[Rfam]
RNA sequence: AGGACACUUGUUUGGAAUUGGUUUCUCCAGCCAUUGGUGAAAUAUACCCAGGUGUCCAACAGUAACAACAUAGAAGCUAUCUGUUCAGCCUUGGAAAGUUAACAAGGUUUGAAUCGUUCCACUUCUGACAUUU
Numbered sequence: 001a002g003g004a005c006a007c008u009u010g011u012u013u014g015g016a017a018u019u020g021g022u023u024u025c026u027c028c029a030g031c032c033a034u035u036g037g038u039g040a041a042a043u044a045u046a047c048c049c050a051g052g053u054g055u056c057c058a059a060c061a062g063u064a065a066c067a068a069c070a071u072a073g074a075a076g077c078u079a080u081c082u083g084u085u086c087a088g089c090c091u092u093g094g095a096a097a098g099u100u101a102a103c104a105a106g107g108u109u110u111g112a113a114u115c116g117u118u119c120c121a122c123u124u125c126u127g128a129c130a131u132u133u
Base pairs, nucleotide, nucleotide: 002057003056004055005054006053007052008051009050010049020043022042023041024040025039027037028036071127072126073125074124075123076122090106091105092104093103
Source information
The family of this 133-nucleotide RNA sequence from Microcaecilia unicolor is "Small Cajal body specific RNA 24". The organism belongs to Microcaecilia, within Eukaryota. Rfam links the family to the GO terms nucleolus, RNA processing and Cajal body. Rfam's curators write: scaRNAs are a specific class of small nuclear RNAs which localise to the Cajal bodies and guide the modification of RNA polymerase II transcribed spliceosomal RNAs U1, U2, U4, U5 and U12. ACA12 belongs to the H/ACA box class of guide RNAs as it has the predicted hairpin-hinge-hairpin-tail structure,the conserved H/ACA-box motifs and is found associated with GAR1. For this family Rfam cites "Cajal body-specific small nuclear RNAs: a novel class of 2'-O-methylation and pseudouridylation guide RNAs" (Darzacq et al., EMBO J, 2002). A search with the family's covariance model found it, with a score of 81 bits.